[Rfam]
RNA sequence: UGUCUCCUCCACCCUCCUCCUUUGGUGUGGAUUUCGACCCGAAGCUUAACCGCUUCGGGUUUUUUUU
Numbered sequence: 001u002g003u004c005u006c007c008u009c010c011a012c013c014c015u016c017c018u019c020c021u022u023u024g025g026u027g028u029g030g031a032u033u034u035c036g037a038c039c040c041g042a043a044g045c046u047u048a049a050c051c052g053c054u055u056c057g058g059g060u061u062u063u064u065u066u067u
Base pairs, nucleotide, nucleotide: 008031009030010029011028012027013025014024037060038059039058040057041056042055043054044053
Shown here is a 67-nucleotide sequence from Noviherbaspirillum humi, a member of the family "Betaproteobacteria toxic small RNA". The match comes from Rfam's covariance-model search (62 bits). Rfam's curators write: Overexpression in amino aid rich medium attenuates growth, suggesting role in repressing amino acid intake and metabolism. Taxonomically the source falls in Noviherbaspirillum (Bacteria, Pseudomonadota, Betaproteobacteria, Burkholderiales).